[Rfam]
RNA sequence: AAGCGGUCCGUUAUGUCCAUCAGACAUGCGGGAAGCUUGCCAGGGAAACACAAUACCUUUGUAUUGGGAAAUUAACUGGC
Number, nucleotide and partner (000 for none) at each position: 001a038002a037003g036004c035005g000006g000007u000008c000009c030010g029011u028012u000013a027014u026015g025016u024017c000018c000019a000020u000021c000022a000023g000024a016025c015026a014027u013028g011029c010030g009031g000032g000033a000034a000035g004036c003037u002038u001039g080040c079041c078042a077043g076044g000045g000046a000047a000048a000049c000050a000051c066052a065053a064054u063055a062056c061057c000058u000059u000060u000061g056062u055063a054064u053065u052066g051067g000068g000069a000070a000071a000072u000073u000074a000075a000076c043077u042078g041079g040080c039
Rfam assigns this 80-nucleotide RNA sequence to the family "Hairpin ribozyme 1 from viruses-like metatranscriptomes". It is one of the family's seed sequences.